[Rfam]
RNA sequence: UUAUUGACAUUAAAUGUCACAAUGAUCCAGUUAUUAGCCUUCUAUCAUUUAUUUUACUAUUACUCACAUUGCCGGCAUUUAUGCCGGUUUUUUUA
Dot-bracket structure: ..............(...(.(((......))).)..).................................((((((......)))))).......
Numbered sequence: 001u002u003a004u005u006g007a008c009a010u011u012a013a014a015u016g017u018c019a020c021a022a023u024g025a026u027c028c029a030g031u032u033a034u035u036a037g038c039c040u041u042c043u044a045u046c047a048u049u050u051a052u053u054u055u056a057c058u059a060u061u062a063c064u065c066a067c068a069u070u071g072c073c074g075g076c077a078u079u080u081a082u083g084c085c086g087g088u089u090u091u092u093u094u095a
Stems, first nucleotide, its partner, number of pairs: 015037001019034001021032003071088006